[Rfam]
Annotation: This 67-nucleotide sequence belongs to the Rfam family "L2-Alphaproteobacteria ribosomal protein leader". On this family, see Eckert and Weinberg, BMC Microbiol 2020: "Discovery of 20 novel ribosomal leader candidates in bacteria and archaea".
RNA sequence: GGCCACCUUCGGGGGGCUAUCACAUAGGCAGGGCAGGGCCUUGCCGUAAGCAAACGGAAGACAGAAA
Numbered sequence: 001g002g003c004c005a006c007c008u009u010c011g012g013g014g015g016g017c018u019a020u021c022a023c024a025u026a027g028g029c030a031g032g033g034c035a036g037g038g039c040c041u042u043g044c045c046g047u048a049a050g051c052a053a054a055c056g057g058a059a060g061a062c063a064g065a066a067a
Stems, first nucleotide, its partner, number of pairs: 001018004006014003027045007